A member of the RNA family "mir-208 microRNA precursor family" from Monodelphis domestica, 73 nucleotides long.
On this family, see Linsen et al., BMC Genomics 2010: "Small RNA expression and strain specificity in the rat".
Rfam 15.1 lists 563 matches to the family in 255 species.
RNA sequence: UGUGACAGGUGAGCUUUUGGUCCGGGUUAUACCUGAUGCAUGUGUAUAAGACGAGCAAAAAGCUCGUUGGUCG
Dot-bracket structure: ..((((.((.((((((((.(..((..((((((...........))))))..))..).)))))))).)).))))
Numbered sequence: 001u002g003u004g005a006c007a008g009g010u011g012a013g014c015u016u017u018u019g020g021u022c023c024g025g026g027u028u029a030u031a032c033c034u035g036a037u038g039c040a041u042g043u044g045u046a047u048a049a050g051a052c053g054a055g056c057a058a059a060a061a062g063c064u065c066g067u068u069g070g071u072c073g
Stems, first nucleotide, its partner, number of pairs: 003073004008068002011065008020056001023053002027049006

The source organism's lineage runs through Eukaryota, Chordata, Amniota, Theria and Monodelphis.